Rfam assigns this 144-nucleotide sequence from Mannheimia varigena to the family "Histidine operon leader". Taxonomically the source falls in Mannheimia varigena (Bacteria, Pseudomonadota, Gammaproteobacteria, Pasteurellales). At least 6 amino acid operons are known to be regulated by attenuation. In each a leader sequence of 150-200 bp is found upstream of the first gene in the operon. For this family Rfam cites "Attenuation in amino acid biosynthetic operons" (Kolter and Yanofsky, Annu Rev Genet, 1982).
RNA sequence: CCAUCAUCGCCAUUUCCCUGAAUAAUCUUUCGGGCGUUUUGGUAUGCUUGGAAGAUAAGUUCCGAGCAAGUGAAGCCGAUAAGUGCAUAAGCUAAUAUCACGAUUUCAACCCCCUCGGAAGUCUUCUUUCGAGGGGGUCUUUUU
Numbered sequence: 001c002c003a004u005c006a007u008c009g010c011c012a013u014u015u016c017c018c019u020g021a022a023u024a025a026u027c028u029u030u031c032g033g034g035c036g037u038u039u040u041g042g043u044a045u046g047c048u049u050g051g052a053a054g055a056u057a058a059g060u061u062c063c064g065a066g067c068a069a070g071u072g073a074a075g076c077c078g079a080u081a082a083g084u085g086c087a088u089a090a091g092c093u094a095a096u097a098u099c100a101c102g103a104u105u106u107c108a109a110c111c112c113c114c115u116c117g118g119a120a121g122u123c124u125u126c127u128u129u130c131g132a133g134g135g136g137g138u139c140u141u142u143u144u
Stems, first nucleotide, its partner, number of pairs: 009043002012038001014036001017034005045068008109138013
Background: Rfam links the family to the GO term histidine biosynthetic process.